[Rfam]
RNA sequence: UGGCCCUGUGAUUAUAAACUGACAACACGAGGACAAAUGCUGAAGACCUGCUUUCUCUUUUCUCAAUUUCUUUCUUUCCUCCACCUCUCUUCUCUCUCCCAACCCCCACUCUUCCUUGUGGGUCUCCAGUGUCCAAUGAGAGUCUGAUUAUGAGAUAUGAGGGCUU
Numbered sequence: 001u002g003g004c005c006c007u008g009u010g011a012u013u014a015u016a017a018a019c020u021g022a023c024a025a026c027a028c029g030a031g032g033a034c035a036a037a038u039g040c041u042g043a044a045g046a047c048c049u050g051c052u053u054u055c056u057c058u059u060u061u062c063u064c065a066a067u068u069u070c071u072u073u074c075u076u077u078c079c080u081c082c083a084c085c086u087c088u089c090u091u092c093u094c095u096c097u098c099c100c101a102a103c104c105c106c107c108a109c110u111c112u113u114c115c116u117u118g119u120g121g122g123u124c125u126c127c128a129g130u131g132u133c134c135a136a137u138g139a140g141a142g143u144c145u146g147a148u149u150a151u152g153a154g155a156u157a158u159g160a161g162g163g164c165u166u
Stems, first nucleotide, its partner, number of pairs: 002165005030063004035058001
This 166-nucleotide sequence from Xenopus laevis belongs to the Rfam family "Small nucleolar RNA SNORD97". By type it is a C/D-box small nucleolar RNA. Rfam links the family to the GO terms RNA processing and nucleolus. Taxonomically the source falls in Xenopus (Eukaryota, Metazoa, Chordata, Pipidae). The literature on the family includes a 2003 paper in Nucleic Acids Res by Vitali et al., "Identification of 13 novel human modification guide RNAs".